The record is a 93-nucleotide RNA from Pediculus humanus, which matches "mir-210 microRNA precursor family" in Rfam. The source organism's lineage runs through Eukaryota, Arthropoda, Mandibulata, Phthiraptera and Pediculus humanus. Gene Ontology terms of the family: RISC complex and miRNA-mediated post-transcriptional gene silencing. It is one of the family's seed sequences.

[Rfam]
RNA sequence: GGAAAACCCAUGGCAGCUGCUGGACACAGCCCAAGAUUAGUUUAAGACUCUUGUGCGUGAACAUCAGCUAGUGUGGGGUUUCAACACGGCAUA
Numbered sequence: 001g002g003a004a005a006a007c008c009c010a011u012g013g014c015a016g017c018u019g020c021u022g023g024a025c026a027c028a029g030c031c032c033a034a035g036a037u038u039a040g041u042u043u044a045a046g047a048c049u050c051u052u053g054u055g056c057g058u059g060a061a062c063a064u065c066a067g068c069u070a071g072u073g074u075g076g077g078g079u080u081u082c083a084a085c086a087c088g089g090c091a092u093a
Stems, first nucleotide, its partner, number of pairs: 005079001007077006015069005021063002025059002029056002032053002035050002